[Rfam]
RNA: Small nucleolar RNA SNORA43
Organism: Sciurus carolinensis
Nucleotides: 136
Stems, first nucleotide, its partner, number of pairs: 003063002008058001010056001024051004075127002083118002087114002092109001094107004
Number, partner (000 for none) and nucleotide at each position: 001000g002000c003063u004062g005000a006000a007000c008058u009000a010056g011000a012000a013000c014000a015000g016000c017000c018000a019000a020000c021000a022000c023000a024051a025050c026049a027048g028000a029000u030000g031000u032000g033000g034000c035000u036000g037000c038000u039000u040000u041000g042000c043000u044000a045000u046000g047000c048027c049026u050025g051024u052000g053000a054000c055000a056010c057000c058008a059000a060000g061000a062004c063003a064000a065000a066000g067000a068000g069000g070000a071000a072000g073000c074000a075127g076126c077000u078000a079000u080000u081000u082000c083118u084117g085000u086000g087114c088113u089000u090000a091000g092109u093000a094107u095106u096105c097104a098000g099000a100000c101000u102000a103000g104097u105096g106095a107094g108000c109092a110000c111000u112000a113088a114087g115000a116000a117084u118083g119000a120000u121000u122000u123000a124000u125000a126076g127075c128000c129000u130000a131000a132000u133000a134000c135000u136000u